[Rfam]
RNA sequence: GGGAGUGCAUGGGGACUGGUGUCUUCCCUGGGCUUCAAACCCACGUGGCGCGCGGCAACCCCGGGCGCGGUAGGUUCGAUUCCUACACACUCCC
Numbered sequence: 001g002g003g004a005g006u007g008c009a010u011g012g013g014g015a016c017u018g019g020u021g022u023c024u025u026c027c028c029u030g031g032g033c034u035u036c037a038a039a040c041c042c043a044c045g046u047g048g049c050g051c052g053c054g055g056c057a058a059c060c061c062c063g064g065g066c067g068c069g070g071u072a073g074g075u076u077c078g079a080u081u082c083c084u085a086c087a088c089a090c091u092c093c094c
Stems, first nucleotide, its partner, number of pairs: 001094007011026006028045001029043004048068004071085004

The record is a 94-nucleotide RNA from Heliorestis acidaminivorans, which matches "Selenocysteine transfer RNA" in Rfam. Lineage of the source: Bacteria > Bacillota > Eubacteriales > Heliobacteriaceae > Heliorestis.